[Rfam]
RNA sequence: GAAUUAAGUAAGAAUUGGAUGGAACUAAAUCCUUUAAUAGUUUAUGGUAGAAUAGGAUUUAGUUUCCUCCAAUAUCUUACAUUCAACCA
Dot-bracket structure: ...((.((((((.((((((.((((((((.((........................)).)))))))).))))))..))))..)).))...
The family of this 89-nucleotide sequence from Kingdonia uniflora is "MIR2275 microRNA precursor family". A search with the family's covariance model found it, with a score of 61 bits. Its family is annotated with miRNA-mediated post-transcriptional gene silencing and RISC complex in the Gene Ontology. The base pairs follow the family's consensus structure, which was predicted with RNAalifold.